[Rfam]
RNA sequence: AUAUUUUUUUUCAAUAUAGAACACUUAUGUCAAUAAAAUGACUUGAAUCCUUU
Numbered sequence: 001a002u003a004u005u006u007u008u009u010u011u012c013a014a015u016a017u018a019g020a021a022c023a024c025u026u027a028u029g030u031c032a033a034u035a036a037a038a039u040g041a042c043u044u045g046a047a048u049c050c051u052u053u
Base pairs, nucleotide, nucleotide: 011033014030015029016028017027